[Rfam]
Shown here is a 74-nucleotide sequence from Trifolium medium, a member of the family "MIR5272 microRNA precursor family". The organism belongs to Trifolium, within Eukaryota. Gene Ontology terms of the family: RISC complex and miRNA-mediated post-transcriptional gene silencing. The match comes from Rfam's covariance-model search (68 bits).
RNA sequence: UUGAACCUAAGUUGAUUUGUGUUUGGAUACAUUAACAUAAAAGUGAUUCUUACAAAUUUACGUUGUUUUGAUAA
Numbered sequence: 001u002u003g004a005a006c007c008u009a010a011g012u013u014g015a016u017u018u019g020u021g022u023u024u025g026g027a028u029a030c031a032u033u034a035a036c037a038u039a040a041a042a043g044u045g046a047u048u049c050u051u052a053c054a055a056a057u058u059u060a061c062g063u064u065g066u067u068u069u070g071a072u073a074a
Stems, first nucleotide, its partner, number of pairs: 011061002014058005021053002025049004030045004
Dot-bracket structure: ..........((.(((((..((..((((.((((........))))))))..))))))).)).............